[Rfam]
RNA sequence: AAUUAAUGAUCAAAGCCUAAGAGCGCCACUUCCUGUGGCAACGGCUUCGAGCCAAACAGCAGCCAAAAAGGC
Numbered sequence: 001a002a003u004u005a006a007u008g009a010u011c012a013a014a015g016c017c018u019a020a021g022a023g024c025g026c027c028a029c030u031u032c033c034u035g036u037g038g039c040a041a042c043g044g045c046u047u048c049g050a051g052c053c054a055a056a057c058a059g060c061a062g063c064c065a066a067a068a069a070g071g072c
Stems, first nucleotide, its partner, number of pairs: 011049001013047005025039005051072003
Dot-bracket structure: ..........(.(((((.......(((((.....)))))...))))).).(((................)))
The record is a 72-nucleotide sequence from Ureibacillus manganicus, which matches "Bacillaceae-1 RNA" in Rfam. Pairs were carried over by alignment from the consensus structure, which is taken from published work. The match comes from Rfam's covariance-model search (44 bits).